[Rfam]
The family of this 235-nucleotide RNA sequence from Salmo trutta is "Small nucleolar RNA SNORA53". The family has 28 seed sequences and 1,090 matches in Rfam 15.1.
RNA sequence: AACACGCUCCUUAGAUCCACCUCUGGGGGGCGCUCCUGGUCUGAGUCUGCUAUCUCUCUCUCUGAGUGUUGACUGCAGCUCCAGCCCAGACGCUCCCAGCAGCUUUCUGGCUGUACAGUUGGAGGUGCUUGAGUCAUUGGCGUGUGAGAACAGUCUACCUGCUCCUCAGCCCACUCCCUGCACUGGCACCCUCGCUGGAAAAUGACCAGUGCAGACAGGCUGGGGAGCGGACAAC
Numbered sequence: 001a002a003c004a005c006g007c008u009c010c011u012u013a014g015a016u017c018c019a020c021c022u023c024u025g026g027g028g029g030g031c032g033c034u035c036c037u038g039g040u041c042u043g044a045g046u047c048u049g050c051u052a053u054c055u056c057u058c059u060c061u062c063u064g065a066g067u068g069u070u071g072a073c074u075g076c077a078g079c080u081c082c083a084g085c086c087c088a089g090a091c092g093c094u095c096c097c098a099g100c101a102g103c104u105u106u107c108u109g110g111c112u113g114u115a116c117a118g119u120u121g122g123a124g125g126u127g128c129u130u131g132a133g134u135c136a137u138u139g140g141c142g143u144g145u146g147a148g149a150a151c152a153g154u155c156u157a158c159c160u161g162c163u164c165c166u167c168a169g170c171c172c173a174c175u176c177c178c179u180g181c182a183c184u185g186g187c188a189c190c191c192u193c194g195c196u197g198g199a200a201a202a203u204g205a206c207c208a209g210u211g212c213a214g215a216c217a218g219g220c221u222g223g224g225g226a227g228c229g230g231a232c233a234a235c
Stems, first nucleotide, its partner, number of pairs: 002145007010133005018127008026096004034090002041084003045081001047078004053072001056066003099114006159230005166223001168221004178214008
Rfam links the family to the GO terms RNA processing and nucleolus.
From the family's description: The snoRNA ACA53 belongs to the H/ACA family of pseudouridylation guide snoRNAs.